Overview
Shown here is a 67-nucleotide sequence from Bombyx mori, a member of the family "mir-2774 microRNA precursor family". The literature on the family includes a 2010 paper in BMC Genomics by Liu et al., "MicroRNAs of Bombyx mori identified by Solexa sequencing". Pairs were carried over by alignment from the consensus structure, which was predicted with RNAalifold. The match comes from Rfam's covariance-model search (67 bits).
RNA sequence: ACAACAUUCGGACCGUCGAUCUAUGGAACAAUAUCACCCGCUCGGUGAAAGAUCUUCCUUUUGUAGU
Numbered sequence: 001a002c003a004a005c006a007u008u009c010g011g012a013c014c015g016u017c018g019a020u021c022u023a024u025g026g027a028a029c030a031a032u033a034u035c036a037c038c039c040g041c042u043c044g045g046u047g048a049a050a051g052a053u054c055u056u057c058c059u060u061u062u063g064u065a066g067u
Base pairs, nucleotide, nucleotide: 004064005063006062010058011057012056015053016052017051020049022047023046024045026043027042029040